[Rfam]
RNA sequence: CAGCCACGGCCGGAUGUAUUCCAAAUGCGUUUAAAAAGCACGGAAAUCCGGCCUGCAAAGCCCUCUGAUCGGGCUAAUACUUGAGUAACUGGCUAGGCAAUCCCCCCACUGCCUGCCAGAUGAGGUCGCGAGGAUUGCGAUUUCAUACUCCUAAUGGUCUUGGCCCGGCUUCCCUGGAAACCGG
Numbered sequence: 001c002a003g004c005c006a007c008g009g010c011c012g013g014a015u016g017u018a019u020u021c022c023a024a025a026u027g028c029g030u031u032u033a034a035a036a037a038g039c040a041c042g043g044a045a046a047u048c049c050g051g052c053c054u055g056c057a058a059a060g061c062c063c064u065c066u067g068a069u070c071g072g073g074c075u076a077a078u079a080c081u082u083g084a085g086u087a088a089c090u091g092g093c094u095a096g097g098c099a100a101u102c103c104c105c106c107c108a109c110u111g112c113c114u115g116c117c118a119g120a121u122g123a124g125g126u127c128g129c130g131a132g133g134a135u136u137g138c139g140a141u142u143u144c145a146u147a148c149u150c151c152u153a154a155u156g157g158u159c160u161u162g163g164c165c166c167g168g169c170u171u172c173c174c175u176g177g178a179a180a181c182c183g184g
Stems, first nucleotide, its partner, number of pairs: 044155001089119003093115001096113001098111002121145009165184004170179003
RNA: RgsA sRNA
Organism: Pseudomonas sp. BAY1663